RNA sequence: CAUCCCUAUGAUUAUGGAUAUGGAUGUUAAAAGUAGUGUCUGAUUGAUCGAAGAUUAGCUGAUGAUAAAUCUGCCCUGAGGGAUG
Numbered sequence: 001c002a003u004c005c006c007u008a009u010g011a012u013u014a015u016g017g018a019u020a021u022g023g024a025u026g027u028u029a030a031a032a033g034u035a036g037u038g039u040c041u042g043a044u045u046g047a048u049c050g051a052a053g054a055u056u057a058g059c060u061g062a063u064g065a066u067a068a069a070u071c072u073g074c075c076c077u078g079a080g081g082g083a084u085g
Base pairs, nucleotide, nucleotide: 001085002084003083004082005081006080
RNA: Small nucleolar RNA R21
Organism: Durio zibethinus